[Rfam]
The family of this 99-nucleotide sequence from Megalops atlanticus is "Small nucleolar RNA SNORD16". NCBI's taxonomy places the organism under Eukaryota, Deuterostomia, Gnathostomata, Megalopidae, Megalops. Gene Ontology terms of the family: nucleolus and RNA processing. On this family, see Huttenhofer et al., EMBO J 2001: "RNomics: an experimental approach that identifies 201 candidates for novel, small, non-messenger RNAs in mouse".
RNA sequence: UGCAGUGAUGGUGUAAUUUGCGUCCGACCUUGUGAACAGUGACAGUUGCCUGCUGUCUCCUUGCUGUCACGGGUGGUUGACGAAAACCAAGUCUGAGCA
Numbered sequence: 001u002g003c004a005g006u007g008a009u010g011g012u013g014u015a016a017u018u019u020g021c022g023u024c025c026g027a028c029c030u031u032g033u034g035a036a037c038a039g040u041g042a043c044a045g046u047u048g049c050c051u052g053c054u055g056u057c058u059c060c061u062u063g064c065u066g067u068c069a070c071g072g073g074u075g076g077u078u079g080a081c082g083a084a085a086a087c088c089a090a091g092u093c094u095g096a097g098c099a
Stems, first nucleotide, its partner, number of pairs: 001099003021082004030072005039064002041057005